[Rfam]
RNA sequence: CAGGAUCCGCAAGCGCCAGGACUUGCGGCCGGCGGGGCCGCAAGUUGACGAGGUGGGGGAUCUCGGAGGAUUCGGCGGGUGACCCCCGGUUGCUCACGACCGUAAGCGGCUCUACAAAGGCCGGGAGCGAUCCCGGAGACAAAGGGGCCAGGUGAGGCCG
Numbered sequence: 001c002a003g004g005a006u007c008c009g010c011a012a013g014c015g016c017c018a019g020g021a022c023u024u025g026c027g028g029c030c031g032g033c034g035g036g037g038c039c040g041c042a043a044g045u046u047g048a049c050g051a052g053g054u055g056g057g058g059g060a061u062c063u064c065g066g067a068g069g070a071u072u073c074g075g076c077g078g079g080u081g082a083c084c085c086c087c088g089g090u091u092g093c094u095c096a097c098g099a100c101c102g103u104a105a106g107c108g109g110c111u112c113u114a115c116a117a118a119g120g121c122c123g124g125g126a127g128c129g130a131u132c133c134c135g136g137a138g139a140c141a142a143a144g145g146g147g148c149c150a151g152g153u154g155a156g157g158c159c160g
Base pairs, nucleotide, nucleotide: 020046021045022044023043024042025041026040027039029037055086056085057084058083064075066073067072087102088101089100090099091098092097108149109148110147111146112145121136122135123134124133125132126131